[Rfam]
Nucleotides: 217
Base pairs, nucleotide, nucleotide: 012035013034014033015032019030020029021028022185024183025182039087040086043084044083045082046081047079048078049074050073051072052071053070054069055068056067057066058065059064109209110208111207112206114204115203128202129201130200131199132198133197134159135158136157139154140153141152164196165195167193168192169191170190171189172188173187174186
Number, partner (000 for none) and nucleotide at each position: 001000c002000g003000a004000c005000u006000c007000c008000c009000u010000c011000g012035c013034g014033g015032c016000a017000g018000a019030g020029g021028c022185u023000a024183g025182c026000c027000g028021g029020c030019c031000a032015g033014c034013c035012g036000a037000a038000a039087g040086c041000g042000a043084g044083u045082c046081u047079u048078g049074c050073a051072u052071g053070g054069g055068c056067a057066g058065g059064g060000g061000u062000a063000a064059c065058u066057c067056u068055g069054u070053u071052c072051g073050u074049g075000a076000a077000g078048c079047g080000u081046a082045g083044a084043c085000a086040g087039c088000g089000g090000g091000u092000a093000u094000u095000g096000a097000a098000g099000c100000c101000a102000u103000g104000u105000g106000c107000u108000u109209g110208g111207c112206c113000a114204c115203g116000a117000a118000a119000u120000c121000a122000u123000g124000c125000a126000u127000c128202g129201u130200c131199a132198g133197a134159g135158c136157c137000u138000u139154c140153g141152u142000u143000g144000u145000g146000u147000u148000g149000g150000g151000u152141g153140c154139g155000g156000g157136g158135g159134c160000a161000a162000u163000a164196u165195c166000g167193a168192g169191a170190c171189g172188a173187c174186c175000g176000u177000u178000a179000u180000c181000g182025g183024c184000g185022a186174g187173g188172u189171c190170g191169u192168c193167u194000g195165g196164g197133u198132c199131u200130g201129g202128c203115c204114g205000g206112g207111g208110u209109c210000u211000u212000g213000g214000a215000g216000c217000a
This 217-nucleotide sequence from Granulicella aggregans belongs to the Rfam family "Group II catalytic intron D1-D4-6". Rfam links the family to the GO term Group II intron splicing. The family has 174 seed sequences and 1,617 matches in Rfam 15.1. Taxonomically the source falls in Granulicella (Bacteria, Pseudomonadati, Acidobacteriota, Terriglobia). The match comes from Rfam's covariance-model search (131 bits).